[Rfam]
A member of the RNA family "Bacterial small subunit ribosomal RNA" from uncultured Fidelibacterota bacterium HF0010_18O13, 574 nucleotides of a longer RNA.
The source organism's lineage runs through Bacteria, Pseudomonadati and Fidelibacterota.

Nucleotides: 574
Stems, first nucleotide, its partner, number of pairs: 009025005027564004032560006039409006045402002047367001052365003056362003061100003066097002070092001073088006107320003116245008126237002131233007139173004148163006179205005185199001187196003210225005246292003253283003258280008295317004299310004322343005345356004373399001375398003381394005412442004422433004447501006456491001464483001508553005519548005529536002
Number, partner (000 for none) and nucleotide at each position: 001000a002000c003000a004000a005000u006000u007000g008000a009025g010024a011023g012022u013021u014000u015000g016000a017000u018000c019000c020000u021013g022012g023011c024010u025009c026000a027564g028563g029562a030561c031000g032560a033559a034558c035557g036556c037555u038000g039409g040408c041407g042406g043405c044404g045402u046401g047367c048000u049000u050000g051000a052365u053364a054363c055000a056362u057361g058360c059000a060000a061100g062099u063098c064000a065000a066097g067096g068000a069000g070092a071000a072000c073088a074087u075086u076085a077084u078083c079000u080000u081000c082000g083078g084077a085076u086075a087074a088073u089000a090000a091000g092070u093000a094000a095000a096067c097066u098063g099062g100061c101000g102000a103000a104000c105000g106000g107320g108319u109318g110000a111000g112000u113000a114000a115000c116245g117244c118243g119242u120241a121240a122239a123238c124000a125000a126237c127236u128000u129000g130000c131233c132232u133231c134230a135229g136228a137227g138000a139173u140172u141171g142170g143000g144000a145000c146000a147000a148163c149162a150161u151160u152159g153158g154000g155000a156000a157000a158153c159152c160151a161150g162149u163148g164000c165000u166000a167000a168000u169000a170142c171141c172140a173139a174000a175000u176000a177000a178000u179205g180204c181203a182202g183201c184000g185199g186000g187196c188195u189194c190000u191000u192000c193000g194189g195188a196187g197000c198000a199185c200000a201183g202182u203181u204180g205179u206000u207000a208000a209000a210225g211224u212223a213222g214221g215000c216000u217000u218000c219000g220000g221214c222213u223212u224211a225210c226000a227137c228136u229135u230134u231133g232132a233131g234000a235000u236127a237126g238123g239122u240121u241120u242119g243118c244117g245116u246292c247291c248290g249000a250000u251000u252000a253283g254282u255281u256000a257000g258280u259279u260278g261277g262276u263275a264274g265273g266000g267000u268000a269000a270000a271000a272000g273265c274264c275263u276262a277261c278260c279259a280258a281255g282254a283253c284000c285000a286000a287000g288000a289000u290248c291247g292246g293000u294000a295317g296316c297315u298314g299310g300309u301308c302307u303000g304000a305000g306000a307302g308301g309300a310299u311000g312000a313000u314298c315297a316296g317295c318109c319108a320107c321000a322343c323342u324341g325340g326339a327000a328000u329000u330000g331000a332000g333000a334000u335000a336000c337000g338000g339326u340325c341324c342323a343322g344000a345356c346355u347354c348353c349000u350000a351000c352000g353348g354347g355346a356345g357000g358000c359000a360058g361057c362056a363054g364053u365052a366000a367047g368000g369000a370000a371000u372000u373399u374000u375398g376397c377396a378000c379000a380000a381394u382393g383392g384391g385390c386000g387000a388000a389000a390385g391384c392383c393382u394381g395000a396377u397376g398375c399373a400000g401046c402045a403000a404044c405043g406042c407041c408040g409039c410000g411000u412442g413441a414440a415439c416000g417000a418000u419000g420000a421000a422433g423432u424431u425430u426000u427000u428000a429000g430425g431424a432423a433422u434000g435000u436000a437000a438000a439415g440414u441413u442412c443000u444000g445000u446000c447501g448500u449499a450498u451497g452496g453000g454000a455000a456491g457000a458000g459000a460000u461000c462000u463000u464483u465000c466000g467000a468000a469000u470000g471000u472000u473000a474000a475000u476000a477000c478000c479000a480000u481000u482000u483464g484000u485000u486000a487000a488000u489000g490000a491456c492000g493000g494000u495000a496452c497451c498450a499449u500448a501447c502000a503000a504000g505000a506000a507000a508553g509552c510551a511550c512549c513000g514000g515000c516000u517000a518000a519548c520547u521546u522545c523544g524000u525000g526000c527000c528000a529536g530535c531000a532000g533000c534000c535530g536529c537000g538000g539000u540000a541000a542000u543000a544523c545522g546521a547520g548519g549512g550511g551510u552509g553508c554000u555037a556036g557035c558034g559033u560032u561030g562029u563028c564027c565000g566000g567000a568000u569000u570000u571000a572000c573000u574000g